[Rfam]
RNA sequence: UAAAGUUGAAUAUCGAUACCGUAGACCGUAGGUGCCGAGAGGCUUAAUUUCCUACCGAGGUGUGUGGAUAGAUCGCGACAGGCUCUCCGGGGCCGUCGAAUCGAUGAACACGUCAUGCCUCCGUAGAUUCUGCGGAGGCAUUUCUUAUGUCCCC
Numbered sequence: 001u002a003a004a005g006u007u008g009a010a011u012a013u014c015g016a017u018a019c020c021g022u023a024g025a026c027c028g029u030a031g032g033u034g035c036c037g038a039g040a041g042g043c044u045u046a047a048u049u050u051c052c053u054a055c056c057g058a059g060g061u062g063u064g065u066g067g068a069u070a071g072a073u074c075g076c077g078a079c080a081g082g083c084u085c086u087c088c089g090g091g092g093c094c095g096u097c098g099a100a101u102c103g104a105u106g107a108a109c110a111c112g113u114c115a116u117g118c119c120u121c122c123g124u125a126g127a128u129u130c131u132g133c134g135g136a137g138g139c140a141u142u143u144c145u146u147a148u149g150u151c152c153c154c
Base pairs, nucleotide, nucleotide: 028055029054030053031052032051034043035042036041117139118138119137120136121135122134123133124132125131126130
RNA: Ribosomal protein L10 leader
Organism: Cohnella xylanilytica